The record is a 222-nucleotide sequence from Bacillus anthracis, which matches "T-box leader" in Rfam. Rfam links the family to the GO term tRNA binding. The source organism's lineage runs through Bacteria, Bacillati, Bacillaceae, Bacillus and Bacillus anthracis. It is one of the family's seed sequences. The family's RNA type in Rfam is cis-regulatory leader.
RNA sequence: AUAUAUGCGCUGAAGAGGAAACAGUAGUGCUUAUCUCACUGUUAAAGAGAGCUGAUGGUAGGUGUGAAUCAGUACAAAGAUAAGCAUGAAUUACAGCCUUGGAGCAUCUUUUCCGCCAACUUUUGGAGGGAAAGACGGUCAAAUGAUCGUUAAAGAAGAAGAGAGGUAGACAGGUAUUUAGUCUACAACUAGGGUGGUACCGCGAUAAAUAUCGUCCCUACU
Numbered sequence: 001a002u003a004u005a006u007g008c009g010c011u012g013a014a015g016a017g018g019a020a021a022c023a024g025u026a027g028u029g030c031u032u033a034u035c036u037c038a039c040u041g042u043u044a045a046a047g048a049g050a051g052c053u054g055a056u057g058g059u060a061g062g063u064g065u066g067a068a069u070c071a072g073u074a075c076a077a078a079g080a081u082a083a084g085c086a087u088g089a090a091u092u093a094c095a096g097c098c099u100u101g102g103a104g105c106a107u108c109u110u111u112u113c114c115g116c117c118a119a120c121u122u123u124u125g126g127a128g129g130g131a132a133a134g135a136c137g138g139u140c141a142a143a144u145g146a147u148c149g150u151u152a153a154a155g156a157a158g159a160a161g162a163g164a165g166g167u168a169g170a171c172a173g174g175u176a177u178u179u180a181g182u183c184u185a186c187a188a189c190u191a192g193g194g195u196g197g198u199a200c201c202g203c204g205a206u207a208a209a210u211a212u213c214g215u216c217c218c219u220a221c222u
Stems, first nucleotide, its partner, number of pairs: 007105002015100004027087006040076003051073006108134007136149003166186006191219004202215005